A member of the RNA family "c-di-GMP-I riboswitch aptamer" from Massiliimalia timonensis, 83 nucleotides long. A search with the family's covariance model found it, with a score of 59 bits. The family's consensus secondary structure is taken from published work. Rfam 15.1 lists 5,092 matches to the family in 1,772 species. Rfam describes the family as follows. GEMM was predicted in a large-scale screen for bacterial structured RNA regulatory elements.
RNA sequence: UUAAAUAAUUAGCAAACCCGGUGAAAACCGGUGGCGCAAAGCUAUAGGGUCUUCGUCUUCUGACAUGACAGCCAGUUGCAGCA
Numbered sequence: 001u002u003a004a005a006u007a008a009u010u011a012g013c014a015a016a017c018c019c020g021g022u023g024a025a026a027a028c029c030g031g032u033g034g035c036g037c038a039a040a041g042c043u044a045u046a047g048g049g050u051c052u053u054c055g056u057c058u059u060c061u062g063a064c065a066u067g068a069c070a071g072c073c074a075g076u077u078g079c080a081g082c083a
Base pairs, nucleotide, nucleotide: 012037013036018031019030020029021028022027040077041076042075043074047073048072049069050068051067056063057062